[Rfam]
RNA sequence: UUUUCAUUUAACUCAAACUUAAGCUUUCCCAACUAUGACUCUGAUUGUCCAUCUUCUGUGGACAUCGAGUGGCUCCUGUCCACUCUGUUUGACGCCUCCCUGUUAUCCACUUCGAGCCGCCGGAAACGGCGGCUCUUUUUUG
Numbered sequence: 001u002u003u004u005c006a007u008u009u010a011a012c013u014c015a016a017a018c019u020u021a022a023g024c025u026u027u028c029c030c031a032a033c034u035a036u037g038a039c040u041c042u043g044a045u046u047g048u049c050c051a052u053c054u055u056c057u058g059u060g061g062a063c064a065u066c067g068a069g070u071g072g073c074u075c076c077u078g079u080c081c082a083c084u085c086u087g088u089u090u091g092a093c094g095c096c097u098c099c100c101u102g103u104u105a106u107c108c109a110c111u112u113c114g115a116g117c118c119g120c121c122g123g124a125a126a127c128g129g130c131g132g133c134u135c136u137u138u139u140u141u142g
Stems, first nucleotide, its partner, number of pairs: 001043001006013001016036001020035002047063004067085006091104004114135009

Annotation:
Rfam assigns this 142-nucleotide RNA from Pseudorhodoplanes sinuspersici to the family "Alphaproteobacterial sRNA BjrC1505". It scores 115 bits against the family's covariance model. For this family Rfam cites "Small RNAs of the Bradyrhizobium/Rhodopseudomonas lineage and their analysis" (Madhugiri et al., RNA Biol, 2012). The base pairs follow the family's consensus structure. Rfam classes the family as a small RNA.